[Rfam]
RNA: TPP riboswitch aptamer (THI element)
RNA sequence: GAUAAAAAACAGGGGAGCUUGUGGGCAGGCUGAGAGGAAGUAAUCGAACUUCGACCCUUUAACCUGAUGCGGAUAAUGCCGUCGUAGGAAGUCAAAGAGUGAGAUUU
Numbered sequence: 001g002a003u004a005a006a007a008a009a010c011a012g013g014g015g016a017g018c019u020u021g022u023g024g025g026c027a028g029g030c031u032g033a034g035a036g037g038a039a040g041u042a043a044u045c046g047a048a049c050u051u052c053g054a055c056c057c058u059u060u061a062a063c064c065u066g067a068u069g070c071g072g073a074u075a076a077u078g079c080c081g082u083c084g085u086a087g088g089a090a091g092u093c094a095a096a097g098a099g100u101g102a103g104a105u106u107u
Base pairs, nucleotide, nucleotide: 009092010091011058012057013056014055017030018029019028020027021026037052038051039050040049041048063088064087065086066085069082070081071080072079